[Rfam]
Overview:
The record is a 79-nucleotide sequence from Myotis myotis, which matches "mir-9198 microRNA precursor family" in Rfam. The organism belongs to Myotis, within Eukaryota. It scores 94 bits against the family's covariance model. The family's consensus secondary structure was predicted with RNAalifold.
RNA sequence: GCCACCGCUCGCACCCACUGCUGGUGCCCGGCACUGGUCCCUAUCGCUUGGCGCCGUCAGUGGGUGUGAGCAGUAGCUG
Numbered sequence: 001g002c003c004a005c006c007g008c009u010c011g012c013a014c015c016c017a018c019u020g021c022u023g024g025u026g027c028c029c030g031g032c033a034c035u036g037g038u039c040c041c042u043a044u045c046g047c048u049u050g051g052c053g054c055c056g057u058c059a060g061u062g063g064g065u066g067u068g069a070g071c072a073g074u075a076g077c078u079g
Stems, first nucleotide, its partner, number of pairs: 004074002007071014022056007